RNA sequence: GAUAAGAGAGGUGAAAAUCCUCUCCGCCGAAAACCUAAGGUUUCCUUGAGUAAAGUUCGUCUGCUCAGGGUUAGUCGAUCCUAAGCCGAGGUCAAAAGACGUAGGCGACGGGUAUCCGGUUAAUAUUCCGGAACUAUCUUUGGUGCGCAUAAUGUGUUUGGCUACGCUUUUCAGUAAGUCAUCAUCCGAUUGGAAGUGGAUGUUGCUCCGUGAGGGGGAGGACCUAAGACAACUUGGGGAACUGACUGUAUGGAAAGUCAAGAAAAACCCAAACACCUGUGCUAGAGGUAAACGUACCGCAAACGGACACACGUAGGUGGGGUGAGAAUCCUAAGGCGCG
Numbered sequence: 001g002a003u004a005a006g007a008g009a010g011g012u013g014a015a016a017a018u019c020c021u022c023u024c025c026g027c028c029g030a031a032a033a034c035c036u037a038a039g040g041u042u043u044c045c046u047u048g049a050g051u052a053a054a055g056u057u058c059g060u061c062u063g064c065u066c067a068g069g070g071u072u073a074g075u076c077g078a079u080c081c082u083a084a085g086c087c088g089a090g091g092u093c094a095a096a097a098g099a100c101g102u103a104g105g106c107g108a109c110g111g112g113u114a115u116c117c118g119g120u121u122a123a124u125a126u127u128c129c130g131g132a133a134c135u136a137u138c139u140u141u142g143g144u145g146c147g148c149a150u151a152a153u154g155u156g157u158u159u160g161g162c163u164a165c166g167c168u169u170u171u172c173a174g175u176a177a178g179u180c181a182u183c184a185u186c187c188g189a190u191u192g193g194a195a196g197u198g199g200a201u202g203u204u205g206c207u208c209c210g211u212g213a214g215g216g217g218g219a220g221g222a223c224c225u226a227a228g229a230c231a232a233c234u235u236g237g238g239g240a241a242c243u244g245a246c247u248g249u250a251u252g253g254a255a256a257g258u259c260a261a262g263a264a265a266a267a268c269c270c271a272a273a274c275a276c277c278u279g280u281g282c283u284a285g286a287g288g289u290a291a292a293c294g295u296a297c298c299g300c301a302a303a304c305g306g307a308c309a310c311a312c313g314u315a316g317g318u319g320g321g322g323u324g325a326g327a328a329u330c331c332u333a334a335g336g337c338g339c340g
Stems, first nucleotide, its partner, number of pairs: 006024006025338004033318004039298002044069002047067004054062002076294002079291001080111002085106003089102001091100003115132005135290011154276002158272004163267001166258004174251001177247005183202005204220001206218004223238006304313002320332003
Shown here is a 340-nucleotide part of an RNA from Candidatus Endomicrobiellum trichonymphae, a member of the family "Bacterial large subunit ribosomal RNA". The family's consensus secondary structure is taken from published work. Rfam's curators put it in the seed alignment. Taxonomically the source falls in Candidatus Endomicrobiellum (Bacteria, Elusimicrobiota, Endomicrobiia, Endomicrobiaceae).